[Rfam]
RNA sequence: GAUAUAAAACAUCAUCACUGAGGCUAUGAGCUGAGUGCUUUGUGUCAUUCUAACCCAUGUUCCCUGGGAAGGUUUGAGACUAGGGCCAAAAGUGGCCCUAACAGGGUCCUCCCUGAGUUUUGGGGAGGUGAGCAGGUCUCUGCUUGAGGUCGGACUGGGCAGGAGAUGCCCUGGAUCCCACCCUUGGGGAGGAGGCUGGCAGAUGCCUCCUUAGCUGGAGCUUGGAACAACAAGUGAGUUCAAUGGCUGAGCUGAGGUACCCUGCCCAGGGGCCUCAUAACCCAAUUCAGGCUACUCUUCCCUGUU
Numbered sequence: 001g002a003u004a005u006a007a008a009a010c011a012u013c014a015u016c017a018c019u020g021a022g023g024c025u026a027u028g029a030g031c032u033g034a035g036u037g038c039u040u041u042g043u044g045u046c047a048u049u050c051u052a053a054c055c056c057a058u059g060u061u062c063c064c065u066g067g068g069a070a071g072g073u074u075u076g077a078g079a080c081u082a083g084g085g086c087c088a089a090a091a092g093u094g095g096c097c098c099u100a101a102c103a104g105g106g107u108c109c110u111c112c113c114u115g116a117g118u119u120u121u122g123g124g125g126a127g128g129u130g131a132g133c134a135g136g137u138c139u140c141u142g143c144u145u146g147a148g149g150u151c152g153g154a155c156u157g158g159g160c161a162g163g164a165g166a167u168g169c170c171c172u173g174g175a176u177c178c179c180a181c182c183c184u185u186g187g188g189g190a191g192g193a194g195g196c197u198g199g200c201a202g203a204u205g206c207c208u209c210c211u212u213a214g215c216u217g218g219a220g221c222u223u224g225g226a227a228c229a230a231c232a233a234g235u236g237a238g239u240u241c242a243a244u245g246g247c248u249g250a251g252c253u254g255a256g257g258u259a260c261c262c263u264g265c266c267c268a269g270g271g272g273c274c275u276c277a278u279a280a281c282c283c284a285a286u287u288c289a290g291g292c293u294a295c296u297c298u299u300c301c302c303u304g305u306u
Stems, first nucleotide, its partner, number of pairs: 001303001007299002012250003016246001020064001022062002033050005038044001074290005084216003094108005109127006128211001130209003253277006
Rfam assigns this 306-nucleotide RNA sequence from Crocuta crocuta to the family "Nuclear RNase P". The family's RNA type in Rfam is ribozyme. The match comes from Rfam's covariance-model search (134 bits). Rfam links the family to the GO terms ribonuclease P activity, ribonuclease P complex and tRNA processing.